RNA sequence: GCGGCGCUGCGGGGUGCGUGCAGGACUUUAUUCCCCGGGGCCUUAUCGAUCUCUAAGGGAGCUGUCCCUGGCCUUGCCCGUGGGCUUGGUCACACGGCGCCCACCUACGUUGUAGGUUCCCGGGAUCGAUGUCCCACGGCUCACGUGGCCCGCG
Numbered sequence: 001g002c003g004g005c006g007c008u009g010c011g012g013g014g015u016g017c018g019u020g021c022a023g024g025a026c027u028u029u030a031u032u033c034c035c036c037g038g039g040g041c042c043u044u045a046u047c048g049a050u051c052u053c054u055a056a057g058g059g060a061g062c063u064g065u066c067c068c069u070g071g072c073c074u075u076g077c078c079c080g081u082g083g084g085c086u087u088g089g090u091c092a093c094a095c096g097g098c099g100c101c102c103a104c105c106u107a108c109g110u111u112g113u114a115g116g117u118u119c120c121c122g123g124g125a126u127c128g129a130u131g132u133c134c135c136a137c138g139g140c141u142c143a144c145g146u147g148g149c150c151c152g153c154g
Stems, first nucleotide, its partner, number of pairs: 004151001006149006012142004017138003032125004037120006057102003061098005070091004076085003

Rfam assigns this 154-nucleotide RNA sequence from Methylocystis echinoides to the family "6S / SsrS RNA". Taxonomically the source falls in Methylocystis (Bacteria, Pseudomonadati, Hyphomicrobiales, Methylocystaceae). Rfam describes the family as follows. E. coli 6S RNA was the first non coding RNA to be sequenced, but its function was unknown until recently. The match comes from Rfam's covariance-model search (71 bits).